RNA: TPP riboswitch aptamer (THI element)
Organism: Desulfoscipio gibsoniae
RNA sequence: UAUACUAACUGGGGGAGCUCAUUGUAUGGGCUGAGAAAGGGCUGUAAGCACCUGACCCAUGAACCUGAACGGGGUAAUGCCCGCGUAGGAAAGGUAUAAAUGACAAUC
Numbered sequence: 001u002a003u004a005c006u007a008a009c010u011g012g013g014g015g016a017g018c019u020c021a022u023u024g025u026a027u028g029g030g031c032u033g034a035g036a037a038a039g040g041g042c043u044g045u046a047a048g049c050a051c052c053u054g055a056c057c058c059a060u061g062a063a064c065c066u067g068a069a070c071g072g073g074g075u076a077a078u079g080c081c082c083g084c085g086u087a088g089g090a091a092a093g094g095u096a097u098a099a100a101u102g103a104c105a106a107u108c
Base pairs, nucleotide, nucleotide: 006096007095009093010092012058013057014056016053017031018030019029020028021027039051041049042048064089065088066087067086070083071082072081073080